[Rfam]
RNA sequence: AACAUGCUUCCUUAGAUCCACCUUUGUGGAUGACUCUUGAUUGAGUUCUACUUGUAAAUUUCUUGUUUCUUGUAGUUCCAAUCAAAGAAUCAUCCAGCAACUUUUUCGGUUGUAUAGUCAAAGGUGCUUGAGUCAUUGGCAUGUGAGAUGAAUCCACCUGCAUAUUAGUCUCAGGUUCUGAUAGAAAUGACAGGCAGUGAUGCUGUCAUUGUUUGCUGUCAGGACUUGACUGGUGUGCGGACAGU
Numbered sequence: 001a002a003c004a005u006g007c008u009u010c011c012u013u014a015g016a017u018c019c020a021c022c023u024u025u026g027u028g029g030a031u032g033a034c035u036c037u038u039g040a041u042u043g044a045g046u047u048c049u050a051c052u053u054g055u056a057a058a059u060u061u062c063u064u065g066u067u068u069c070u071u072g073u074a075g076u077u078c079c080a081a082u083c084a085a086a087g088a089a090u091c092a093u094c095c096a097g098c099a100a101c102u103u104u105u106u107c108g109g110u111u112g113u114a115u116a117g118u119c120a121a122a123g124g125u126g127c128u129u130g131a132g133u134c135a136u137u138g139g140c141a142u143g144u145g146a147g148a149u150g151a152a153u154c155c156a157c158c159u160g161c162a163u164a165u166u167a168g169u170c171u172c173a174g175g176u177u178c179u180g181a182u183a184g185a186a187a188u189g190a191c192a193g194g195c196a197g198u199g200a201u202g203c204u205g206u207c208a209u210u211g212u213u214u215g216c217u218g219u220c221a222g223g224a225c226u227u228g229a230c231u232g233g234u235g236u237g238c239g240g241a242c243a244g245u
Base pairs, nucleotide, nucleotide: 002144003143004142005141006140007139008138011132012131013130014129015128019126020125021124022123023122024121025120026119027096028095029094030093031092032091035088036087037086038085040082041081042080043079045078048075049074050073051072054069056068057067058066059065097113098112099111100110101109102108158240159239160238161237162236165233167231168230169229170228177223178222179221180220181219182218183217184216188215189214190213194206195205196204